The family of this 234-nucleotide RNA from Osedax symbiont Rs1 is "Group II catalytic intron D1-D4-6". The family has 174 seed sequences and 1,617 matches in Rfam 15.1. From the family's description: Group II introns are found in rRNA, tRNA and mRNA of organelles in fungi, plants and protists, and also in mRNA in bacteria.
RNA sequence: UAAUUCCUCAGUUCGGUAAGGUUAGCGAACCGCCGAAACCCCGAGUCAUGGGCUUUACACCGUAAGGUGUCGAGUUAAGCGUUGACAGGGGAAACCAUAGGCUGAGUAUUGAGCUGCGAAAUCAUAUUUAAGAGUGCUGACCUAGUUGUGUGAUAGGGAAGGCAACACGAUGGAUAGACACAAAACCUGUCAGGUAACGCUAGUUAUUCAUCGGCUCUUCGCAGUCUUAGACCU
Numbered sequence: 001u002a003a004u005u006c007c008u009c010a011g012u013u014c015g016g017u018a019a020g021g022u023u024a025g026c027g028a029a030c031c032g033c034c035g036a037a038a039c040c041c042c043g044a045g046u047c048a049u050g051g052g053c054u055u056u057a058c059a060c061c062g063u064a065a066g067g068u069g070u071c072g073a074g075u076u077a078a079g080c081g082u083u084g085a086c087a088g089g090g091g092a093a094a095c096c097a098u099a100g101g102c103u104g105a106g107u108a109u110u111g112a113g114c115u116g117c118g119a120a121a122u123c124a125u126a127u128u129u130a131a132g133a134g135u136g137c138u139g140a141c142c143u144a145g146u147u148g149u150g151u152g153a154u155a156g157g158g159a160a161g162g163c164a165a166c167a168c169g170a171u172g173g174a175u176a177g178a179c180a181c182a183a184a185a186c187c188u189g190u191c192a193g194g195u196a197a198c199g200c201u202a203g204u205u206a207u208u209c210a211u212c213g214g215c216u217c218u219u220c221g222c223a224g225u226c227u228u229a230g231a232c233c234u
Base pairs, nucleotide, nucleotide: 012037013036014035015034016033020031021030022029039091040090041089042088045086046085047084048083049081050080051076052075053074054073055072057070058069059068060067061066111226113225114224115223116222117221118220130219131218132217133216134215135214136163137162138161141157142156143155144154168213169212170211171210172209173208174207175206176205177204